A member of the RNA family "Small nucleolar RNA SNORD16" from Aquarana catesbeiana, 99 nucleotides long. Clan: SNORD16 clan. A search with the family's covariance model found it, with a score of 99 bits. NCBI's taxonomy places the organism under Eukaryota, Opisthokonta, Dipnotetrapodomorpha, Tetrapoda, Aquarana.
RNA sequence: UGCAAUGAUGGUGUAAUUUGCGCCUUACCUGGUAUUCAGUGACAGUUGCCUACUGUCAUUAUGCUGAUACUGAGGGCUGACGAUAAUCGAGUCUGAGCA
Numbered sequence: 001u002g003c004a005a006u007g008a009u010g011g012u013g014u015a016a017u018u019u020g021c022g023c024c025u026u027a028c029c030u031g032g033u034a035u036u037c038a039g040u041g042a043c044a045g046u047u048g049c050c051u052a053c054u055g056u057c058a059u060u061a062u063g064c065u066g067a068u069a070c071u072g073a074g075g076g077c078u079g080a081c082g083a084u085a086a087u088c089g090a091g092u093c094u095g096a097g098c099a
Stems, first nucleotide, its partner, number of pairs: 001099003021082002024079001030072005039064002041057005